[Rfam]
RNA sequence: UUCGUCUCACGUGACUGGCGAAAGACCGGAUCAGUCCGGUCAAGAUGGGUAUCCAUCGGGAAGCGUGAGAUUUUUCAUCAGCCGUGCGCCUGGGUAGCCGAA
Numbered sequence: 001u002u003c004g005u006c007u008c009a010c011g012u013g014a015c016u017g018g019c020g021a022a023a024g025a026c027c028g029g030a031u032c033a034g035u036c037c038g039g040u041c042a043a044g045a046u047g048g049g050u051a052u053c054c055a056u057c058g059g060g061a062a063g064c065g066u067g068a069g070a071u072u073u074u075u076c077a078u079c080a081g082c083c084g085u086g087c088g089c090c091u092g093g094g095u096a097g098c099c100g101a102a
Base pairs, nucleotide, nucleotide: 004071005070006069007068008067009066010065011064012063015060016059017090018089019088020087045056046055047054048053079097081095082094083093
RNA: ZMP/ZTP riboswitch aptamer (pfl RNA motif)
Organism: Herbaspirillum sp. YR522